RNA sequence: CCCGCGGCUAGACGGAAAGACCCCAUGAACCUUUACUACAGCUUUACACUGGACUUUGAACCUGCUUGUGUAGGAUAGGUGGGAGGCUUUGAAGCGGCAACGCCAGUUGUCGUGGAGCCAUCCUUGAAAUACCACCCUGGCAUGUUUGAAGUUCUAACCUAGACCCGUCAUCCGGGUUGGGGACAGUGUAUGGUGGGUAGUUUGACUGGGGCGGUCUCCUCCUAAAGAGUAACGGAGGAGUGCGAAGGUACCCUAAGCACGGUCGGAAAUCGUGCGCUUAGUGCAAAGGCAUAAGGGUGCUUGACUGCGAGACAGACACGUCGAGCAGGUGCGAAAGCAGGUCUUAGUGAUCCGGUGGUUCUGUAUGGAAGGGCCAUCGCUCAACGGAUAAAAGGUACUCUGGGGAUAACAGGCUGAUACCGCCCAAGAGUUCAUAUCGACGGCGGUGUUUGGCACCUCGAUGUCGGCUCAUCACAUCCUGGGGCUGAAGCAGGUCCCAAGGGUAUGGCUGUUCGCCAUUUAAAGUGGUACGCGAGCUGGGUUUAGAACGUCGUGAGACAGUUCGGUCCCUAUCUGCCGUGGGCGUU
Numbered sequence: 001c002c003c004g005c006g007g008c009u010a011g012a013c014g015g016a017a018a019g020a021c022c023c024c025a026u027g028a029a030c031c032u033u034u035a036c037u038a039c040a041g042c043u044u045u046a047c048a049c050u051g052g053a054c055u056u057u058g059a060a061c062c063u064g065c066u067u068g069u070g071u072a073g074g075a076u077a078g079g080u081g082g083g084a085g086g087c088u089u090u091g092a093a094g095c096g097g098c099a100a101c102g103c104c105a106g107u108u109g110u111c112g113u114g115g116a117g118c119c120a121u122c123c124u125u126g127a128a129a130u131a132c133c134a135c136c137c138u139g140g141c142a143u144g145u146u147u148g149a150a151g152u153u154c155u156a157a158c159c160u161a162g163a164c165c166c167g168u169c170a171u172c173c174g175g176g177u178u179g180g181g182g183a184c185a186g187u188g189u190a191u192g193g194u195g196g197g198u199a200g201u202u203u204g205a206c207u208g209g210g211g212c213g214g215u216c217u218c219c220u221c222c223u224a225a226a227g228a229g230u231a232a233c234g235g236a237g238g239a240g241u242g243c244g245a246a247g248g249u250a251c252c253c254u255a256a257g258c259a260c261g262g263u264c265g266g267a268a269a270u271c272g273u274g275c276g277c278u279u280a281g282u283g284c285a286a287a288g289g290c291a292u293a294a295g296g297g298u299g300c301u302u303g304a305c306u307g308c309g310a311g312a313c314a315g316a317c318a319c320g321u322c323g324a325g326c327a328g329g330u331g332c333g334a335a336a337g338c339a340g341g342u343c344u345u346a347g348u349g350a351u352c353c354g355g356u357g358g359u360u361c362u363g364u365a366u367g368g369a370a371g372g373g374c375c376a377u378c379g380c381u382c383a384a385c386g387g388a389u390a391a392a393a394g395g396u397a398c399u400c401u402g403g404g405g406a407u408a409a410c411a412g413g414c415u416g417a418u419a420c421c422g423c424c425c426a427a428g429a430g431u432u433c434a435u436a437u438c439g440a441c442g443g444c445g446g447u448g449u450u451u452g453g454c455a456c457c458u459c460g461a462u463g464u465c466g467g468c469u470c471a472u473c474a475c476a477u478c479c480u481g482g483g484g485c486u487g488a489a490g491c492a493g494g495u496c497c498c499a500a501g502g503g504u505a506u507g508g509c510u511g512u513u514c515g516c517c518a519u520u521u522a523a524a525g526u527g528g529u530a531c532g533c534g535a536g537c538u539g540g541g542u543u544u545a546g547a548a549c550g551u552c553g554u555g556a557g558a559c560a561g562u563u564c565g566g567u568c569c570c571u572a573u574c575u576g577c578c579g580u581g582g583g584c585g586u587u
Stems, first nucleotide, its partner, number of pairs: 001583008010575003014570002022404004027400002029396005035201004042193002045190004051154011063142004068137001078136005085119003094113008158181003162178006204216004217239006240385001242342002248300006254280002257275006281290002305328004311322003330339003353379007361372002413454003417451001418448007428438002465540001466538004470532001471529005478503002481498006505519005546564004550559003
RNA: Bacterial large subunit ribosomal RNA, nucleotides 2028 to 2614